[Rfam]
RNA sequence: UUAGAUAUGAAUUGAUAUAUGUUUUGACACACUCACUUGAAAUUGAUUCUUAUAAGUUGAUGUUGUUUGGAUAG
Numbered sequence: 001u002u003a004g005a006u007a008u009g010a011a012u013u014g015a016u017a018u019a020u021g022u023u024u025u026g027a028c029a030c031a032c033u034c035a036c037u038u039g040a041a042a043u044u045g046a047u048u049c050u051u052a053u054a055a056g057u058u059g060a061u062g063u064u065g066u067u068u069g070g071a072u073a074g
Stems, first nucleotide, its partner, number of pairs: 011061006018054001021053002026048002030045002033042001
RNA: MIR5272 microRNA precursor family